[Rfam]
Rfam assigns this 79-nucleotide RNA sequence from Apaloderma vittatum to the family "mir-145 microRNA precursor family". Rfam 15.1 lists 645 matches to the family in 626 species. Gene Ontology terms of the family: RISC complex and miRNA-mediated post-transcriptional gene silencing. On this family, see Michael et al., Mol Cancer Res 2003: "Reduced accumulation of specific microRNAs in colorectal neoplasia".
RNA sequence: GCCGUGCCCUCAGGGUCCAGUUUUCCCAGGAAUCCCUUACGUGGGGGAUUCCUGGAAAUACUGUUCUUGGGGCCACGGC
Numbered sequence: 001g002c003c004g005u006g007c008c009c010u011c012a013g014g015g016u017c018c019a020g021u022u023u024u025c026c027c028a029g030g031a032a033u034c035c036c037u038u039a040c041g042u043g044g045g046g047g048a049u050u051c052c053u054g055g056a057a058a059u060a061c062u063g064u065u066c067u068u069g070g071g072g073c074c075a076c077g078g079c
Base pairs, nucleotide, nucleotide: 018063019062020061021060023058024057026055027054028053029052030051031050032049033048034047035046036045037044